[Rfam]
RNA sequence: UUAUGCUAGUAGUGGGCAUUGUGCCUGUUUAGUCGGUCAGGUCUGAAAGGAAGCAGCCAGAAUGGGAUUCGAUGGGUCAUUACUAGCAUUAUUCU
Dot-bracket structure: ...(((((((((((..(((((..((((((...(.(((....(((....)))....))).)))))))...)))))...))))))))))).......
Numbered sequence: 001u002u003a004u005g006c007u008a009g010u011a012g013u014g015g016g017c018a019u020u021g022u023g024c025c026u027g028u029u030u031a032g033u034c035g036g037u038c039a040g041g042u043c044u045g046a047a048a049g050g051a052a053g054c055a056g057c058c059a060g061a062a063u064g065g066g067a068u069u070c071g072a073u074g075g076g077u078c079a080u081u082a083c084u085a086g087c088a089u090u091a092u093u094c095u
Stems, first nucleotide, its partner, number of pairs: 004088011017074005024066006033060001035058003042051003
A member of the RNA family "Bacterial small signal recognition particle RNA" from Rickettsia felis, 95 nucleotides long.
On this family, see Righetti et al., Proc Natl Acad Sci U S A 2016: "Temperature-responsive in vitro RNA structurome of Yersinia pseudotuberculosis".
The source organism's lineage runs through Bacteria, Pseudomonadota, Rickettsiaceae, Rickettsieae and Rickettsia felis.
By type it is a non-coding RNA gene.